The record is a 102-nucleotide RNA sequence from Menidia menidia, which matches "Vault RNA" in Rfam.
The match comes from Rfam's covariance-model search (60 bits).
Taxonomically the source falls in Menidia (Eukaryota, Eumetazoa, Deuterostomia, Clupeocephala).
[Rfam]
RNA sequence: GCACUGGUGUAGCUCAGUGGUUACUUCUCUCAUCAAUUCAUUCCGAAUUCGCUGAUUCCUCCCGUUUGCGGGAUCAAACCACGGGCGCUGUCCAGUGUUUUA
Numbered sequence: 001g002c003a004c005u006g007g008u009g010u011a012g013c014u015c016a017g018u019g020g021u022u023a024c025u026u027c028u029c030u031c032a033u034c035a036a037u038u039c040a041u042u043c044c045g046a047a048u049u050c051g052c053u054g055a056u057u058c059c060u061c062c063c064g065u066u067u068g069c070g071g072g073a074u075c076a077a078a079c080c081a082c083g084g085g086c087g088c089u090g091u092c093c094a095g096u097g098u099u100u101u102a
Base pairs, nucleotide, nucleotide: 002097003096004095005094006093007092012086013085014084015083017082018081019080020079026073027072028071029070